RNA sequence: GCUUGCAGCAUUGUACCCAGGGUCUCUGCAGACAUUGCACCUGGAGCUGCCCCACCUCAAAUAAAAAUAACC
Numbered sequence: 001g002c003u004u005g006c007a008g009c010a011u012u013g014u015a016c017c018c019a020g021g022g023u024c025u026c027u028g029c030a031g032a033c034a035u036u037g038c039a040c041c042u043g044g045a046g047c048u049g050c051c052c053c054a055c056c057u058c059a060a061a062u063a064a065a066a067a068u069a070a071c072c
Stems, first nucleotide, its partner, number of pairs: 005050005017044004022033004
A member of the RNA family "U1A polyadenylation inhibition element (PIE)" from Catharus ustulatus, 72 nucleotides long. It is annotated as a cis-regulatory element. From the family's description: This family represents the U1A polyadenylation inhibition element (PIE). The match comes from Rfam's covariance-model search (58 bits). The organism belongs to Catharus, within Eukaryota.